[Rfam]
RNA sequence: GAUGCCGGACUUGCCGGCACCACAGGUGUGGCCCGCGCCGUUGGGGCAGAGAGGAAGCGGCUAUUUCUACGCUCAGUGCUCAGAACUGUGGGCACUAAGAAUGGUUUGUAGCCAGACACCA
Numbered sequence: 001g002a003u004g005c006c007g008g009a010c011u012u013g014c015c016g017g018c019a020c021c022a023c024a025g026g027u028g029u030g031g032c033c034c035g036c037g038c039c040g041u042u043g044g045g046g047c048a049g050a051g052a053g054g055a056a057g058c059g060g061c062u063a064u065u066u067c068u069a070c071g072c073u074c075a076g077u078g079c080u081c082a083g084a085a086c087u088g089u090g091g092g093c094a095c096u097a098a099g100a101a102u103g104g105u106u107u108g109u110a111g112c113c114a115g116a117c118a119c120c121a
Stems, first nucleotide, its partner, number of pairs: 003048004007042002023035001025033001059113003067104003072099002077094006